The record is a 102-nucleotide sequence from Salipaludibacillus agaradhaerens, which matches "Purine riboswitch aptamer" in Rfam. Rfam's curators write: Riboswitches are metabolite binding domains within certain messenger RNAs that serve as precision sensors for their corresponding targets. On this family, see Mandal et al., Cell 2003: "Riboswitches Control Fundamental Biochemical Pathways in Bacillus subtilis and Other Bacteria".
[Rfam]
RNA sequence: UGCAAAUUAAUGACGUUACCUCAUAUAAAGUCGGGGAUAUGGCCCGAAAGUUUCUACCUGUUGACCAUAAAUCAAUAGACUAUGAGGGAAAUGGACACAUAU
Numbered sequence: 001u002g003c004a005a006a007u008u009a010a011u012g013a014c015g016u017u018a019c020c021u022c023a024u025a026u027a028a029a030g031u032c033g034g035g036g037a038u039a040u041g042g043c044c045c046g047a048a049a050g051u052u053u054c055u056a057c058c059u060g061u062u063g064a065c066c067a068u069a070a071a072u073c074a075a076u077a078g079a080c081u082a083u084g085a086g087g088g089a090a091a092u093g094g095a096c097a098c099a100u101a102u
Base pairs, nucleotide, nucleotide: 019087020086021085022084023083024082025081031047032046033045034044035043058078059077060076061075062074063073064072
Dot-bracket structure: ..................(((((((.....(((((.......)))))..........(((((((.......)))))))..)))))))...............